Rfam assigns this 93-nucleotide RNA sequence from Bowdeniella nasicola to the family "SAM riboswitch aptamer (S box leader)". It scores 60 bits against the family's covariance model. The source organism's lineage runs through Bacteria, Bacillati, Actinomycetota, Actinomycetes and Bowdeniella.
RNA sequence: AAGCCAUCCAGAGCAGCUGAGAGACCCGGCUCGUUGACGCUGCAGCAACCCCCCGAAUUCGGGUGAGGGUGCUAAGGCCGGGACCGAUGGAGG
Numbered sequence: 001a002a003g004c005c006a007u008c009c010a011g012a013g014c015a016g017c018u019g020a021g022a023g024a025c026c027c028g029g030c031u032c033g034u035u036g037a038c039g040c041u042g043c044a045g046c047a048a049c050c051c052c053c054c055g056a057a058u059u060c061g062g063g064u065g066a067g068g069g070u071g072c073u074a075a076g077g078c079c080g081g082g083a084c085c086g087a088u089g090g091a092g093g
Stems, first nucleotide, its partner, number of pairs: 004090005013043005021032003026081004044073004049069002051065001053063002077085001